[Rfam]
RNA: mir-23 microRNA precursor family
Organism: Atractosteus spatula
RNA sequence: GGCAAUUGGAAUUCCUGGCAGAGUGAUUUUGGAACAAUCAUGAAUCACAUUGCCAGGGAUUUCCAAUAGCU
Numbered sequence: 001g002g003c004a005a006u007u008g009g010a011a012u013u014c015c016u017g018g019c020a021g022a023g024u025g026a027u028u029u030u031g032g033a034a035c036a037a038u039c040a041u042g043a044a045u046c047a048c049a050u051u052g053c054c055a056g057g058g059a060u061u062u063c064c065a066a067u068a069g070c071u
Stems, first nucleotide, its partner, number of pairs: 001071002009064001011060011023048007